RNA sequence: AUGGGAUCUUUUCUCCGAGCCAAAAGGCCUGAGGCCGGCUCUCCGGCUAUGGUCUUUGGCCGCUGGGCAGGACGGGAAACCGCCUUGCCUCCCGUGUUUGGAAAGGAGAGAUCUUAUCGUGGGA
Dot-bracket structure: ..((.(....((((((..(((((.(((((...((((((....))))))..))))))))))....(((((((.(((....))).)))))))((.......))...))))))....).))......
Numbered sequence: 001a002u003g004g005g006a007u008c009u010u011u012u013c014u015c016c017g018a019g020c021c022a023a024a025a026g027g028c029c030u031g032a033g034g035c036c037g038g039c040u041c042u043c044c045g046g047c048u049a050u051g052g053u054c055u056u057u058g059g060c061c062g063c064u065g066g067g068c069a070g071g072a073c074g075g076g077a078a079a080c081c082g083c084c085u086u087g088c089c090u091c092c093c094g095u096g097u098u099u100g101g102a103a104a105g106g107a108g109a110g111a112u113c114u115u116a117u118c119g120u121g122g123g124a
Stems, first nucleotide, its partner, number of pairs: 003118002006115001011110006019060005025055005033048006065090007073082003091101002
This 124-nucleotide RNA from Thermacetogenium phaeum belongs to the Rfam family "Molybdenum/Tungsten riboswitch aptamer (Moco RNA motif)".
On this family, see Regulski et al., Mol Microbiol 2008: "in molybdenum cofactor and tungsten cofactor metabolism".
The match comes from Rfam's covariance-model search (80 bits).